A member of the RNA family "S4-Flavobacteria ribosomal protein leader", 35 nucleotides long. Clan: Ribosomal Protein S4 Leader clan. The sequence is in the family's curated seed alignment. The family's consensus secondary structure is taken from published work.

[Rfam]
RNA sequence: GGUUUUCGAAGGAUAAAAGACCUUAAUUCAUAACC
Numbered sequence: 001g002g003u004u005u006u007c008g009a010a011g012g013a014u015a016a017a018a019g020a021c022c023u024u025a026a027u028u029c030a031u032a033a034c035c
Stems, first nucleotide, its partner, number of pairs: 001035004006030001008029001009024004